[Rfam]
RNA sequence: ACUUUCCUCAUCUGUAAGUCGCUUUGAAUAAAAGCGUCUGCUAAAUGAAUAAAU
Numbered sequence: 001a002c003u004u005u006c007c008u009c010a011u012c013u014g015u016a017a018g019u020c021g022c023u024u025u026g027a028a029u030a031a032a033a034g035c036g037u038c039u040g041c042u043a044a045a046u047g048a049a050u051a052a053a054u
Base pairs, nucleotide, nucleotide: 013043014041015040016039020036021035022034023033024032025031
About this RNA:
Shown here is a 54-nucleotide RNA sequence from Carassius auratus, a member of the family "UnaL2 LINE 3' element". From the family's description: The eel long interspersed element (LINE) UnaL2 and its partner short interspersed element (SINE) share a conserved 3' tail containing a stem-loop that is critical for their retrotransposition. Presumably, the first step of retrotransposition is the recognition of their 3' tails by UnaL2-encoded reverse transcriptase. Taxonomically the source falls in Carassius (Eukaryota, Gnathostomata, Actinopterygii, Teleostei). The literature on the family includes a 2004 paper in RNA by Baba et al., "Solution structure of an RNA stem-loop derived from the 3' conserved region of eel LINE UnaL2". It scores 58 bits against the family's covariance model. It is annotated as a cis-regulatory element.